[Rfam]
RNA sequence: GCUGGGCACAGUGGCUUGUGCCUGUAAUCCCAGCUCCUUGGGAGGCUGAGACUAUAGAGUCAUAUGAGCUCAGGGGUUCUGGGCUACAAUGGGCCAAGUUGAUUGGGUGUCCAUACUAAGGUCAGCAUCAAUAUGGUGACCUGUGGGAAGCUAUAGGUUACCAGGUUGUGUAAAAAGGGGUGAACUGGCCCAGGUCAGAAAUGGAACAGGUCAAAGCUCCUAUGCUGAAAGGUAGUGGGAUUGCACCUGUGAUUGGUUCUUGUAGUCCAGCCUGGGGAAGAGAGUGAGACGCAGUCUCUU
Numbered sequence: 001g002c003u004g005g006g007c008a009c010a011g012u013g014g015c016u017u018g019u020g021c022c023u024g025u026a027a028u029c030c031c032a033g034c035u036c037c038u039u040g041g042g043a044g045g046c047u048g049a050g051a052c053u054a055u056a057g058a059g060u061c062a063u064a065u066g067a068g069c070u071c072a073g074g075g076g077u078u079c080u081g082g083g084c085u086a087c088a089a090u091g092g093g094c095c096a097a098g099u100u101g102a103u104u105g106g107g108u109g110u111c112c113a114u115a116c117u118a119a120g121g122u123c124a125g126c127a128u129c130a131a132u133a134u135g136g137u138g139a140c141c142u143g144u145g146g147g148a149a150g151c152u153a154u155a156g157g158u159u160a161c162c163a164g165g166u167u168g169u170g171u172a173a174a175a176a177g178g179g180g181u182g183a184a185c186u187g188g189c190c191c192a193g194g195u196c197a198g199a200a201a202u203g204g205a206a207c208a209g210g211u212c213a214a215a216g217c218u219c220c221u222a223u224g225c226u227g228a229a230a231g232g233u234a235g236u237g238g239g240a241u242u243g244c245a246c247c248u249g250u251g252a253u254u255g256g257u258u259c260u261u262g263u264a265g266u267c268c269a270g271c272c273u274g275g276g277g278a279a280g281a282g283a284g285u286g287a288g289a290c291g292c293a294g295u296c297u298c299u300u
Base pairs, nucleotide, nucleotide: 001046002045003044004023005022006021007020008019009018010017011016028043029042030041048298049297050296051295052294053293055291060287061286062285063284065282069276070275071274072273073272074271079270080269081268082267083266084265085264086263087262088261089260091258093257094256095255096254097253099251104249105248106247107246108245109244110243111239112238114237115236116235117234118233122228123227124226125225126224127223128222129168130167131166132165134163135162136161137160138159139158140157141156142155143154144153145152146151169175176221177220178219179218180217181216186213187212188211189210190209195204196203197202

Background: Shown here is a 300-nucleotide RNA sequence from Sphenodon punctatus, a member of the family "Metazoan signal recognition particle RNA". Its Rfam clan is "SRP clan". Rfam links the family to the GO terms SRP-dependent cotranslational protein targeting to membrane, signal sequence recognition and signal recognition particle, endoplasmic reticulum targeting.